[Rfam]
mir-3102 microRNA precursor family: a 104-nucleotide sequence from Microtus ochrogaster. It scores 62 bits against the family's covariance model. The family's consensus secondary structure was predicted with RNAalifold. The organism belongs to Microtus, within Eukaryota.

RNA sequence: GUGGGUAGCCAAUGGGGUGCUCUGGCUGGGGCAGGGAGUAGAGCCCAUGGUAGAUCAAUGGCUCUCCUGCCUGCACCACCCAGCCCCACCCUGGCCACUCACAG
Dot-bracket structure: (((.((.((((..(((.....((((.(((.(((((.((.((((((..............)))))).)).))))).))).)))).....))))))).)).)))..